RNA sequence: AAAGUCAGUCGGACAGUCGCGCUUAUAAUGAGUGAGGAAAGUCCGGGCUUUACAGAGCAAGAUGCCAGAUAACGUCUGGGAGGCGUGAGCCUACGGAAAGUGCAACAGAAAAUAUACCGCCUUAUUUUUUAAGGUAAGGGUGAAAAGGUGUGGUAAGAGCGCACCGCAUUGGUGGUAACACUCAAUGGCAUUGUAAACCCCAUCUAAAGCAAGACCAAAUAGUGCCACUAUGAUGUUGCUCGCAUCGUGGCAGGGUAGGUCGCUUGAGCUUAUUGGUGACAAUAGGCCUAGAUAAAUGACUGUCUAUUACAGAACCCGGCUUAUAGACUGGCUUUGUAU
Numbered sequence: 001a002a003a004g005u006c007a008g009u010c011g012g013a014c015a016g017u018c019g020c021g022c023u024u025a026u027a028a029u030g031a032g033u034g035a036g037g038a039a040a041g042u043c044c045g046g047g048c049u050u051u052a053c054a055g056a057g058c059a060a061g062a063u064g065c066c067a068g069a070u071a072a073c074g075u076c077u078g079g080g081a082g083g084c085g086u087g088a089g090c091c092u093a094c095g096g097a098a099a100g101u102g103c104a105a106c107a108g109a110a111a112a113u114a115u116a117c118c119g120c121c122u123u124a125u126u127u128u129u130u131a132a133g134g135u136a137a138g139g140g141u142g143a144a145a146a147g148g149u150g151u152g153g154u155a156a157g158a159g160c161g162c163a164c165c166g167c168a169u170u171g172g173u174g175g176u177a178a179c180a181c182u183c184a185a186u187g188g189c190a191u192u193g194u195a196a197a198c199c200c201c202a203u204c205u206a207a208a209g210c211a212a213g214a215c216c217a218a219a220u221a222g223u224g225c226c227a228c229u230a231u232g233a234u235g236u237u238g239c240u241c242g243c244a245u246c247g248u249g250g251c252a253g254g255g256u257a258g259g260u261c262g263c264u265u266g267a268g269c270u271u272a273u274u275g276g277u278g279a280c281a282a283u284a285g286g287c288c289u290a291g292a293u294a295a296a297u298g299a300c301u302g303u304c305u306a307u308u309a310c311a312g313a314a315c316c317c318g319g320c321u322u323a324u325a326g327a328c329u330g331g332c333u334u335u336g337u338a339u
Stems, first nucleotide, its partner, number of pairs: 001335010011324001012304007020034006039322003043319005048209004055241004060205005065079005080094001081092004095200002100198002102194003117139002119135006147165006166189001167187005172181003213261004223252006232246005268287008

Annotation
Shown here is a 339-nucleotide RNA sequence from Francisella tularensis, a member of the family "Bacterial RNase P class A". The source organism's lineage runs through Bacteria, Pseudomonadota, Gammaproteobacteria, Francisella and Francisella tularensis subsp. tularensis. By type it is a ribozyme. The base pairs follow the family's consensus structure, which is taken from published work. Its family is annotated with ribonuclease P activity, dimeric ribonuclease P complex and tRNA processing in the Gene Ontology. From the family's description: Ribonuclease P (RNase P) is a ubiquitous endoribonuclease, found in archaea, bacteria and eukarya as well as chloroplasts and mitochondria.